[Rfam]
RNA sequence: GAAUGUGUCUUUAUGGCGAGGUUAACACGUUCAGCGUGGGAGCCAUAGGGAAACCAACAUGGACGUAGCGUCUUUGACGUGUGGUUCGCCGUGUUCAAGCGCGGGAAGUCAUGAGGACACGACCCGAAACCGGGUGAUCUAUGCGUGGACAGGGUGAAGCGUGGCGAAAGCUACGUGGAAGCCCGAAGAGUUGGUGCCUUACAAAGCCCUCUCGUGAUCUACGUAUAGGGGUGAAAAGCCCAUCGAACCCGGCAACAGCUGGUU
Numbered sequence: 001g002a003a004u005g006u007g008u009c010u011u012u013a014u015g016g017c018g019a020g021g022u023u024a025a026c027a028c029g030u031u032c033a034g035c036g037u038g039g040g041a042g043c044c045a046u047a048g049g050g051a052a053a054c055c056a057a058c059a060u061g062g063a064c065g066u067a068g069c070g071u072c073u074u075u076g077a078c079g080u081g082u083g084g085u086u087c088g089c090c091g092u093g094u095u096c097a098a099g100c101g102c103g104g105g106a107a108g109u110c111a112u113g114a115g116g117a118c119a120c121g122a123c124c125c126g127a128a129a130c131c132g133g134g135u136g137a138u139c140u141a142u143g144c145g146u147g148g149a150c151a152g153g154g155u156g157a158a159g160c161g162u163g164g165c166g167a168a169a170g171c172u173a174c175g176u177g178g179a180a181g182c183c184c185g186a187a188g189a190g191u192u193g194g195u196g197c198c199u200u201a202c203a204a205a206g207c208c209c210u211c212u213c214g215u216g217a218u219c220u221a222c223g224u225a226u227a228g229g230g231g232u233g234a235a236a237a238g239c240c241c242a243u244c245g246a247a248c249c250c251g252g253c254a255a256c257a258g259c260u261g262g263u264u
Stems, first nucleotide, its partner, number of pairs: 005120013020044004026038004048055002061087004068080004090103004123262002126259001130252006139228011150216001152184004159176007188213003193209002196207002230240003
Dot-bracket structure: ....(((((((((((((..((((..((((.....))))..))))...((....)).....((((...((((.....))))...))))..((((......))))....)))))))))))))..((.(...((((((...((((((((((((.((((...(((((((....)))))))....))))...(((..((.((........)))).)))..).))))))))))).(((.....)))......))))))......).))..
RNA: Archaeal large subunit ribosomal RNA, nucleotides 700 to 963